A member of the RNA family "ASpks TB sRNA" from Nonomuraea glycinis, 75 nucleotides long. It scores 71 bits against the family's covariance model. Rfam classes the family as an antisense RNA. Lineage of the source: Bacteria > Actinomycetes > Streptosporangiales > Streptosporangiaceae > Nonomuraea. Pairs were carried over by alignment from the consensus structure, which is taken from published work. The family has 77 seed sequences and 9,052 matches in Rfam 15.1.
[Rfam]
RNA sequence: CUUCAGGGAGCCGAGCCAGAUCGGGCUGUCCUCUGUGCGGGCCCGGCCGUAGGUGGACAGGAGCGCCUGGGCCUC
Numbered sequence: 001c002u003u004c005a006g007g008g009a010g011c012c013g014a015g016c017c018a019g020a021u022c023g024g025g026c027u028g029u030c031c032u033c034u035g036u037g038c039g040g041g042c043c044c045g046g047c048c049g050u051a052g053g054u055g056g057a058c059a060g061g062a063g064c065g066c067c068u069g070g071g072c073c074u075c
Base pairs, nucleotide, nucleotide: 016024017023031071032070033069038065039064043060045058047056048055049054